Shown here is a 109-nucleotide sequence from Actinorugispora endophytica, a member of the family "TPP riboswitch aptamer (THI element)". Pairs were carried over by alignment from the consensus structure, which is taken from published work. Taxonomically the source falls in Actinorugispora (Bacteria, Actinomycetes, Streptosporangiales, Nocardiopsidaceae). A search with the family's covariance model found it, with a score of 62 bits.
[Rfam]
RNA sequence: GCUAUGGACGCGGGGUGCCGACAUGUCCCGGGAAGAGCGGACCGGCUGAGAAGACACCCGUGGACCUGAUCUAGGUAACGCUAGCGGAGGGACGUCCUUGAGCUUCAAC
Numbered sequence: 001g002c003u004a005u006g007g008a009c010g011c012g013g014g015g016u017g018c019c020g021a022c023a024u025g026u027c028c029c030g031g032g033a034a035g036a037g038c039g040g041a042c043c044g045g046c047u048g049a050g051a052a053g054a055c056a057c058c059c060g061u062g063g064a065c066c067u068g069a070u071c072u073a074g075g076u077a078a079c080g081c082u083a084g085c086g087g088a089g090g091g092a093c094g095u096c097c098u099u100g101a102g103c104u105u106c107a108a109c
Stems, first nucleotide, its partner, number of pairs: 006097005011060004016054001017046004065090003071084004